The family of this 149-nucleotide RNA sequence from Dyella thiooxydans is "FMN riboswitch aptamer (RFN element)".
Lineage of the source: Bacteria > Pseudomonadati > Gammaproteobacteria > Lysobacterales > Dyella.
[Rfam]
RNA sequence: CGACGUCUUCAGGGCGGGGCGAAACUCCCCACCGGCGGUAGGUGCCUUCGGGCACGAGCCCGCGAGCGCUCGCGACGCCCGUCGCGAGGUCAGCAGAUCCGGUCCAAGUCCGGAGCCGACGGUCACAGUCCGGAUGAAAGAAGACGGCC
Numbered sequence: 001c002g003a004c005g006u007c008u009u010c011a012g013g014g015c016g017g018g019g020c021g022a023a024a025c026u027c028c029c030c031a032c033c034g035g036c037g038g039u040a041g042g043u044g045c046c047u048u049c050g051g052g053c054a055c056g057a058g059c060c061c062g063c064g065a066g067c068g069c070u071c072g073c074g075a076c077g078c079c080c081g082u083c084g085c086g087a088g089g090u091c092a093g094c095a096g097a098u099c100c101g102g103u104c105c106a107a108g109u110c111c112g113g114a115g116c117c118g119a120c121g122g123u124c125a126c127a128g129u130c131c132g133g134a135u136g137a138a139a140g141a142a143g144a145c146g147g148c149c
Base pairs, nucleotide, nucleotide: 004146005145006144007143008142009141010140017029018028019027031129032128033118034117035063036062037061038060058116059115066094067093098114099113100112101111102110120132121131122130